Enterobacterial sRNA STnc430: a 159-nucleotide RNA from Citrobacter koseri. It is annotated as a small RNA. Rfam's curators put it in the seed alignment. The source organism's lineage runs through Bacteria, Gammaproteobacteria, Enterobacterales, Citrobacter and Citrobacter koseri.

[Rfam]
RNA sequence: AACAUUCAUUAUCCGUAUACUCUGAAAAUAACACCGAGUAACUUACGGGUUAUUCAUUAUUUUAGGAUUAAGCUCAAUAUAAAUUUUUGCGGAAUAGCACAGACAACCGGAAUUAUCUUAUAAAAAAAGCCGAUAAUAAUAUCGGCUCUAAUUACAGAU
Numbered sequence: 001a002a003c004a005u006u007c008a009u010u011a012u013c014c015g016u017a018u019a020c021u022c023u024g025a026a027a028a029u030a031a032c033a034c035c036g037a038g039u040a041a042c043u044u045a046c047g048g049g050u051u052a053u054u055c056a057u058u059a060u061u062u063u064a065g066g067a068u069u070a071a072g073c074u075c076a077a078u079a080u081a082a083a084u085u086u087u088u089g090c091g092g093a094a095u096a097g098c099a100c101a102g103a104c105a106a107c108c109g110g111a112a113u114u115a116u117c118u119u120a121u122a123a124a125a126a127a128a129g130c131c132g133a134u135a136a137u138a139a140u141a142u143c144g145g146c147u148c149u150a151a152u153u154a155c156a157g158a159u
Base pairs, nucleotide, nucleotide: 012103013102015100016099021067022066023065025063026062027061028060029059030058031057037054038053039052040051041050042049043048109118110117128147129146130145131144132143133142134141135140
Dot-bracket structure: ...........((.((....(((.(((((((.....(((((((....)))))))..))))))).)))...............................)).)).....((......)).........((((((((....))))))))............